RNA sequence: CGGGUCGAGGGGCGCUGCGACGGAUGAGAAUCCGCCACGCUCGGCCCGUGCCUGGUCGUAAGGGCGCCUCCCACCG
Numbered sequence: 001c002g003g004g005u006c007g008a009g010g011g012g013c014g015c016u017g018c019g020a021c022g023g024a025u026g027a028g029a030a031u032c033c034g035c036c037a038c039g040c041u042c043g044g045c046c047c048g049u050g051c052c053u054g055g056u057c058g059u060a061a062g063g064g065c066g067c068c069u070c071c072c073a074c075c076g
Base pairs, nucleotide, nucleotide: 002047003046004045005044006043007042008041021034022033023032024031025030
The record is a 76-nucleotide RNA sequence from Actinoplanes regularis, which matches "SAH (S-adenosyl-L-homocysteine) riboswitch aptamer" in Rfam. NCBI's taxonomy places the organism under Bacteria, Bacillati, Actinomycetota, Micromonosporaceae, Actinoplanes.